RNA: SAH (S-adenosyl-L-homocysteine) riboswitch aptamer
RNA sequence: UUGCUCGAGGAGCGCUGCAAGCGCGGGUCAAACCUUUUGACCGUCUGCGUCCAGGCUCGGGCACACGCUCCGAUUUUUCUCUGCCGCACAACCACCGUUGACGGCAAAGACUCCAACGGCGCUCGCGUUUC
Number, nucleotide and partner (000 for none) at each position: 001u000002u063003g062004c061005u060006c059007g058008a057009g000010g000011a000012g000013c000014g000015c000016u000017g000018c000019a000020a000021g050022c049023g048024c047025g046026g045027g044028u043029c000030a000031a000032a000033c000034c000035u000036u000037u000038u000039g000040a000041c000042c000043g028044u027045c026046u025047g024048c023049g022050u021051c000052c000053a000054g000055g000056c000057u008058c007059g006060g005061g004062c003063a002064c000065a000066c000067g000068c000069u000070c000071c000072g000073a000074u000075u000076u000077u000078u000079c000080u000081c000082u000083g000084c000085c000086g000087c000088a000089c000090a000091a000092c000093c000094a000095c000096c000097g000098u000099u000100g000101a000102c000103g000104g000105c000106a000107a000108a000109g000110a000111c000112u000113c000114c000115a000116a000117c000118g000119g000120c000121g000122c000123u000124c000125g000126c000127g000128u000129u000130u000131c000